[Rfam]
RNA sequence: UAAGAGGAUGCCGAAAAUCUUAUAGAGUAGGCA
Numbered sequence: 001u002a003a004g005a006g007g008a009u010g011c012c013g014a015a016a017a018u019c020u021u022a023u024a025g026a027g028u029a030g031g032c033a
Stems, first nucleotide, its partner, number of pairs: 002021004010032003

Shown here is a 33-nucleotide RNA, a member of the family "DUF805b RNA".